[Rfam]
RNA sequence: CCCUUGGAGUGUUACAGCAAACGAAAGUAGUAUAUGAAAAUAUACCAAAUCGGACACGAUGAACAGGGAA
Number, nucleotide and partner (000 for none) at each position: 001c068002c067003c066004u065005u000006g000007g000008a000009g057010u056011g055012u054013u053014a000015c000016a000017g000018c000019a000020a000021a000022c052023g051024a050025a000026a000027g000028u000029a000030g045031u044032a043033u000034a000035u000036g000037a000038a000039a000040a000041u000042a000043u032044a031045c030046c000047a000048a000049a000050u024051c023052g022053g013054a012055c011056a010057c009058g000059a000060u000061g000062a000063a000064c000065a004066g003067g002068g001069a000070a000
RNA: RAGATH-18 RNA